A member of the RNA family "Rhizobiales sRNA Atu_At1" from Tardiphaga sp. vice352, 112 nucleotides long. It scores 79 bits against the family's covariance model. By type it is a small RNA. On this family, see Wilms et al., RNA Biol 2012: "Deep sequencing uncovers numerous small RNAs on all four replicons of the plant pathogen Agrobacterium tumefaciens".
RNA sequence: AUACGCCGAGUGACAGCCGGCCACAACGGGGAUGUUGGACGCGGCGAUUUCGUCGGCUUCUCGUCGUGACAGCAACGCAUCGGUACGCGUCGCAAUCUAACCCGUUCUCGGC
Numbered sequence: 001a002u003a004c005g006c007c008g009a010g011u012g013a014c015a016g017c018c019g020g021c022c023a024c025a026a027c028g029g030g031g032a033u034g035u036u037g038g039a040c041g042c043g044g045c046g047a048u049u050u051c052g053u054c055g056g057c058u059u060c061u062c063g064u065c066g067u068g069a070c071a072g073c074a075a076c077g078c079a080u081c082g083g084u085a086c087g088c089g090u091c092g093c094a095a096u097c098u099a100a101c102c103c104g105u106u107c108u109c110g111g112c
Stems, first nucleotide, its partner, number of pairs: 006111004011023002014020001025106006034097001035095003040068007069084002073082001
Dot-bracket structure: .....((((.((.(.....).)).((((((...((((..(((((((...............)))))))((..(........)))........))).)...)))))).)))).